[Rfam]
RNA: mir-129 microRNA precursor family
Organism: Camelus dromedarius
RNA sequence: UGAAAUCUUUUUGCGGUCUGGGCUUGCUGUACAGUAACUCAAUAGCCGGAAAGCCCUUACCCAAAAAGCAUUCG
Numbered sequence: 001u002g003a004a005a006u007c008u009u010u011u012u013g014c015g016g017u018c019u020g021g022g023c024u025u026g027c028u029g030u031a032c033a034g035u036a037a038c039u040c041a042a043u044a045g046c047c048g049g050a051a052a053g054c055c056c057u058u059a060c061c062c063a064a065a066a067a068g069c070a071u072u073c074g
Stems, first nucleotide, its partner, number of pairs: 007068007015061003020056004025051001027049002